[Rfam]
RNA sequence: AUGGGUAAGUCACACUUAGCCCUGAAACCUACGUCCGUCGCGGAUAGGGUUUCCUGGCCGCAACCUUGAGUUGCCAGGGUGCAGAAAGAAAUGCCUGCAUCUCCCGAAUCUGGAAAGGUGUCACGGUGCCACAAUU
Numbered sequence: 001a002u003g004g005g006u007a008a009g010u011c012a013c014a015c016u017u018a019g020c021c022c023u024g025a026a027a028c029c030u031a032c033g034u035c036c037g038u039c040g041c042g043g044a045u046a047g048g049g050u051u052u053c054c055u056g057g058c059c060g061c062a063a064c065c066u067u068g069a070g071u072u073g074c075c076a077g078g079g080u081g082c083a084g085a086a087a088g089a090a091a092u093g094c095c096u097g098c099a100u101c102u103c104c105c106g107a108a109u110c111u112g113g114a115a116a117g118g119u120g121u122c123a124c125g126g127u128g129c130c131a132c133a134a135u136u
Base pairs, nucleotide, nucleotide: 003130004129012121013120014119015118016117019058020057021056024053025052026051027050028049029048033045034044035043036042060074061073062072063071064070077102078101079100080099081098082097083096084095087092103113104112
RNA: Molybdenum/Tungsten riboswitch aptamer (Moco RNA motif)